[Rfam]
RNA sequence: GGCGAUCUGCGCUUCCCGACAGGAACCACAAUCCCCGGGGCCAUACACGAUCUCAAGGGGACUGUCCCUGGCCGGACCCGUGGGUCCGGGCAUACGGUGCCCACCUACCUAGUAGGUACCCGGGAUCGUAAAUCAUCCAUCGGUCGUCGUGGAUCGCAC
Dot-bracket structure: .(((((((((((..(.(((............((((.((.(((..............(((.(((((....(.(((((((....))))))).)..))))).)))............))).)).))))..............))))..).))))))))))..